[Rfam]
RNA sequence: CCGUUCUCAACGGGGUGCCCUUUCCGGGCUGAGAUAAACCCGUCGAACCUGAUCCGGUUAAUACCGGCGUAGGGAUUUGAGAUGUCCAUUAAC
Numbered sequence: 001c002c003g004u005u006c007u008c009a010a011c012g013g014g015g016u017g018c019c020c021u022u023u024c025c026g027g028g029c030u031g032a033g034a035u036a037a038a039c040c041c042g043u044c045g046a047a048c049c050u051g052a053u054c055c056g057g058u059u060a061a062u063a064c065c066g067g068c069g070u071a072g073g074g075a076u077u078u079g080a081g082a083u084g085u086c087c088a089u090u091a092a093c
Stems, first nucleotide, its partner, number of pairs: 006081005011042004016036001017029004048073004054067004
The record is a 93-nucleotide RNA sequence from Pantoea vagans, which matches "TPP riboswitch aptamer (THI element)" in Rfam. The match comes from Rfam's covariance-model search (80 bits).